[Rfam]
Background
This 77-nucleotide RNA sequence from Crocodylus porosus belongs to the Rfam family "Mammalian CPEB3 ribozyme". The organism belongs to Crocodylus, within Eukaryota. On this family, see Salehi-Ashtiani et al., Science 2006: "A genomewide search for ribozymes reveals an HDV-like sequence in the human CPEB3 gene".
Nucleotides: 077
Stems, first nucleotide, its partner, number of pairs: 013045001015044004021077007028040001052063004
Number, partner (000 for none) and nucleotide at each position: 001000g002000g003000u004000u005000g006000c007000a008000a009000a010000u011000u012000u013045g014000a015044g016043g017042c018041c019000a020000u021077a022076g023075c024074a025073g026072a027071a028040g029000c030000a031000c032000u033000c034000a035000u036000g037000g038000c039000a040028c041018g042017g043016c044015c045013c046000u047000g048000u049000c050000a051000u052063a053062u054061u055060c056000c057000a058000g059000u060055g061054a062053a063052u064000c065000c066000a067000u068000g069000a070000a071027u072026u073025c074024u075023g076022c077021u